[Rfam]
The family of this 289-nucleotide RNA from Immersiella caudata is "A. fumigatus sRNA Afu_309". It scores 117 bits against the family's covariance model. NCBI's taxonomy places the organism under Eukaryota, Fungi, Sordariomycetes, Lasiosphaeriaceae, Immersiella. It is annotated as a small RNA.
RNA sequence: UUCUCUUCACGCACCUGUGCCCAGCGAUCCUCAUCCGCCCUUGGGUUCUCCCUCGGAACGGUUUGGGUCGAUUGCUGCGGCAGCUCGGUAACCAAGGAGCCAUCUAGUUCACCAUGAUGUCAAUUUCCAGCCGACAGGUUCAAGAGUAACCGGAUUCUGGGGAGCCCCGUUUGCUGUAACAGGCUUGAGCGGUGGUGAAGCAGAUUUUGGGGGAUGUCAUAUUCCAAGCCGCUCUUCCAAGAUCGUCGAUCCUUGGGAGUUGGGGAAAACCAUGGCCUCGACCACAUUC
Numbered sequence: 001u002u003c004u005c006u007u008c009a010c011g012c013a014c015c016u017g018u019g020c021c022c023a024g025c026g027a028u029c030c031u032c033a034u035c036c037g038c039c040c041u042u043g044g045g046u047u048c049u050c051c052c053u054c055g056g057a058a059c060g061g062u063u064u065g066g067g068u069c070g071a072u073u074g075c076u077g078c079g080g081c082a083g084c085u086c087g088g089u090a091a092c093c094a095a096g097g098a099g100c101c102a103u104c105u106a107g108u109u110c111a112c113c114a115u116g117a118u119g120u121c122a123a124u125u126u127c128c129a130g131c132c133g134a135c136a137g138g139u140u141c142a143a144g145a146g147u148a149a150c151c152g153g154a155u156u157c158u159g160g161g162g163a164g165c166c167c168c169g170u171u172u173g174c175u176g177u178a179a180c181a182g183g184c185u186u187g188a189g190c191g192g193u194g195g196u197g198a199a200g201c202a203g204a205u206u207u208u209g210g211g212g213g214a215u216g217u218c219a220u221a222u223u224c225c226a227a228g229c230c231g232c233u234c235u236u237c238c239a240a241g242a243u244c245g246u247c248g249a250u251c252c253u254u255g256g257g258a259g260u261u262g263g264g265g266a267a268a269a270c271c272a273u274g275g276c277c278u279c280g281a282c283c284a285c286a287u288u289c
Base pairs, nucleotide, nucleotide: 011141013139014138015137016136017135018134019081020080021079022077023076024075026073027072028071029070030067031066032065033064035061036060037059039056040055043052044051045050089133092130096121097120099118101116152208153207154206158202159201168194169190170189171188172187173186174183175182213282215280216276217275218274219273220272229265230264232262236259238257241251242250243249244248
Dot-bracket structure: ..........(.((((((((((((.((((((((.(((.((..(((....)))..))..)))..))))..)))).))).))).......(..(...((.(.(..............).).))........)..))))))).)..........(((...((........((((((((......))..)))))...)......))...)))....(.((((((........((.(...(.(..((((...)))).....).)..).))......)))))...).).......